[Rfam]
RNA sequence: GUGGUGGCGGCGGGUUUUUACCGUUUCCUCCGCCUUGAGCCGGCCGAAGCAGAACGGUGUCAGGUCGGCUACACCAC
Number, nucleotide and partner (000 for none) at each position: 001g077002u076003g075004g074005u073006g072007g000008c000009g000010g033011c032012g031013g030014g000015u000016u000017u000018u000019u000020a000021c000022c000023g000024u000025u000026u000027c000028c000029u000030c013031c012032g011033c010034c000035u000036u000037g000038a070039g069040c068041c067042g066043g065044c064045c063046g000047a000048a000049g000050c000051a000052g000053a000054a000055c000056g000057g000058u000059g000060u000061c000062a000063g045064g044065u043066c042067g041068g040069c039070u038071a000072c006073a005074c004075c003076a002077c001
RNA: CyVA-1 RNA